[Rfam]
The record is an 86-nucleotide sequence from Solanum tuberosum, which matches "MIR8024 microRNA precursor family" in Rfam. It scores 80 bits against the family's covariance model. Pairs were carried over by alignment from the consensus structure, which was predicted with RNAalifold. Gene Ontology terms of the family: miRNA-mediated post-transcriptional gene silencing and RISC complex.
RNA sequence: UUGGAGGAUAUAAAGACUUCAACUUGUUUACUUAAAGAAUUUGAAGACUUCAACUUGAAUAUUUGGUGGAUUUAAAGACUUCAACU
Number, nucleotide and partner (000 for none) at each position: 001u084002u083003g082004g081005a080006g079007g000008a000009u076010a000011u074012a073013a072014a071015g000016a000017c068018u000019u066020c065021a064022a000023c000024u000025u059026g000027u057028u000029u000030a000031c000032u053033u052034a000035a050036a049037g048038a000039a000040u000041u000042u000043g000044a000045a000046g000047a000048c037049u036050u035051c000052a033053a032054c000055u000056u000057g027058a000059a025060u000061a000062u000063u000064u021065g020066g019067u000068g017069g000070a000071u014072u013073u012074a011075a000076a009077g000078a000079c006080u005081u004082c003083a002084a001085c000086u000